[Rfam]
RNA sequence: UUGGGAACAGCACGGCCGCAAGUCUGACUCGCCGCCGCGUGUCUUCGCGGAGCGUCCCUCCGCCACGCACGGCUUGGGAUUGCGGAAGUGC
Numbered sequence: 001u002u003g004g005g006a007a008c009a010g011c012a013c014g015g016c017c018g019c020a021a022g023u024c025u026g027a028c029u030c031g032c033c034g035c036c037g038c039g040u041g042u043c044u045u046c047g048c049g050g051a052g053c054g055u056c057c058c059u060c061c062g063c064c065a066c067g068c069a070c071g072g073c074u075u076g077g078g079a080u081u082g083c084g085g086a087a088g089u090g091c
Base pairs, nucleotide, nucleotide: 010091011090012089013088016085017084018083019082020081021080024078025077031073032072033071034070037068038067039066040065041064
RNA: S15-Halobacteria ribosomal protein leader
Organism: Salinarchaeum sp. Harcht-Bsk1